[Rfam]
RNA sequence: UCUCAGUGCAUUAUUACUCACGGUACGAGUAGAGUUUGGCAUAGCGCGUACCAAAAGUAAUAAUGAACCAAGA
Numbered sequence: 001u002c003u004c005a006g007u008g009c010a011u012u013a014u015u016a017c018u019c020a021c022g023g024u025a026c027g028a029g030u031a032g033a034g035u036u037u038g039g040c041a042u043a044g045c046g047c048g049u050a051c052c053a054a055a056a057g058u059a060a061u062a063a064u065g066a067a068c069c070a071a072g073a
Stems, first nucleotide, its partner, number of pairs: 009065010022052006029045001